[Rfam]
mir-965 microRNA precursor family: a 72-nucleotide sequence from Dendroctonus ponderosae. Its family is annotated with miRNA-mediated post-transcriptional gene silencing and RISC complex in the Gene Ontology. The base pairs follow the family's consensus structure, which was predicted with RNAalifold. The source organism's lineage runs through Eukaryota, Protostomia, Aparaglossata, Curculionidae and Dendroctonus.
Nucleotides: 072
Stems, first nucleotide, its partner, number of pairs: 003070005010064001012062001014060002018056005026049002029046003
Number, partner (000 for none) and nucleotide at each position: 001000a002000c003070u004069c005068g006067a007066g008000g009000g010064g011000u012062g013000g014060a015059a016000a017000g018056c019055u020054g021053u022052a023000a024000c025000g026049c027048u028000a029046a030045u031044g032000g033000u034000a035000u036000g037000a038000a039000g040000a041000a042000c043000g044031c045030a046029u047000a048027a049026g050000c051000g052022u053021a054020u055019a056018g057000c058000u059015u060014u061000u062012c063000c064010c065000c066007u067006u068005c069004g070003g071000u072000u